[Rfam]
RNA sequence: CCCGCCACUGUACCAGUCUGCCCCGUGACACGGUUCAGUCCAGUGGAGGCUAAGAGUAACCCCAGCUUUAGGAAACAGGGCUGCCCACAUGGAUGGGUGACUCUGUGCCGAAAAGUCUGGAACACGC
Number, nucleotide and partner (000 for none) at each position: 001c000002c000003c000004g000005c046006c045007a044008c043009u042010g041011u000012a000013c000014c000015a000016g000017u000018c033019u032020g031021c000022c027023c000024c000025g000026u000027g022028a000029c000030a000031c020032g019033g018034u000035u000036c000037a000038g000039u000040c000041c010042a009043g008044u007045g006046g005047a000048g000049g000050c000051u000052a000053a000054g000055a000056g000057u000058a000059a000060c000061c000062c120063c119064a118065g117066c115067u114068u113069u112070a000071g109072g108073a000074a000075a000076c105077a104078g103079g102080g101081c000082u000083g000084c097085c096086c095087a000088c000089a000090u000091g000092g000093a000094u000095g086096g085097g084098u000099g000100a000101c080102u079103c078104u077105g076106u000107g000108c072109c071110g000111a000112a069113a068114a067115g066116u000117c065118u064119g063120g062121a000122a000123c000124a000125c000126g000127c000
RNA: Small nucleolar RNA SNORA65
Organism: Oryzias latipes